RNA: SAM riboswitch aptamer (S box leader)
Organism: Butyricicoccus sp. TM10-16AC
RNA sequence: UCCUUAUCGAGAGCGGUGGAGGGAACGGCCCUGUGAAACCCGGCAACCUGCGUUGUUUUGCAACGUAAGGUGCCAAAUCCGGCGUAAGAAUACGAAAGAUGAGGG
Numbered sequence: 001u002c003c004u005u006a007u008c009g010a011g012a013g014c015g016g017u018g019g020a021g022g023g024a025a026c027g028g029c030c031c032u033g034u035g036a037a038a039c040c041c042g043g044c045a046a047c048c049u050g051c052g053u054u055g056u057u058u059u060g061c062a063a064c065g066u067a068a069g070g071u072g073c074c075a076a077a078u079c080c081g082g083c084g085u086a087a088g089a090a091u092a093c094g095a096a097a098g099a100u101g102a103g104g105g
Base pairs, nucleotide, nucleotide: 001105002104003103004102005101006100007099008098013041015040016039017038021031022030023029026081027080028079042074043073044072045071047070048069049067050066051065052064053063054062078097083094084093085092086091